[Rfam]
Nucleotides: 055
Stems, first nucleotide, its partner, number of pairs: 001051013019034005
Number, partner (000 for none) and nucleotide at each position: 001051a002050a003049g004048g005047a006046g007045c008044a009043a010042u011041a012040c013039c014000c015000a016000c017000c018000c019034u020033c021032u022031u023030g024000a025000u026000a027000g028000a029000a030023c031022a032021a033020g034019a035000a036000a037000u038000u039013g040012g041011u042010a043009u044008u045007g046006c047005u048004c049003c050002u051001u052000c053000a054000u055000u